[Rfam]
RNA: SAH (S-adenosyl-L-homocysteine) riboswitch aptamer
Organism: Burkholderiales bacterium PBB3
RNA sequence: GUUUCCAAGGAGCGUUGCAGCAGACCCUAGCGGUUUGUCAGGCUUGGACCGGGUGCUUGCACCCUCGCAACGACGCUCACCUGUU
Numbered sequence: 001g002u003u004u005c006c007a008a009g010g011a012g013c014g015u016u017g018c019a020g021c022a023g024a025c026c027c028u029a030g031c032g033g034u035u036u037g038u039c040a041g042g043c044u045u046g047g048a049c050c051g052g053g054u055g056c057u058u059g060c061a062c063c064c065u066c067g068c069a070a071c072g073a074c075g076c077u078c079a080c081c082u083g084u085u
Stems, first nucleotide, its partner, number of pairs: 004048005021037006